[Rfam]
RNA sequence: CCGUUAGAAAGGGAUAUGAAAAUCUGUCCCGUGCCGCAAGGCAUCCGAGUGUAGAAAUAAAAUAAC
Numbered sequence: 001c002c003g004u005u006a007g008a009a010a011g012g013g014a015u016a017u018g019a020a021a022a023u024c025u026g027u028c029c030c031g032u033g034c035c036g037c038a039a040g041g042c043a044u045c046c047g048a049g050u051g052u053a054g055a056a057a058u059a060a061a062a063u064a065a066c
Base pairs, nucleotide, nucleotide: 011030012029013028014027015026016025032043033042034041035040
The record is a 66-nucleotide RNA, which matches "lysM-Prevotella RNA" in Rfam.
Rfam classes the family as a cis-regulatory element.
The base pairs follow the family's consensus structure, which is taken from published work.
The sequence is in the family's curated seed alignment.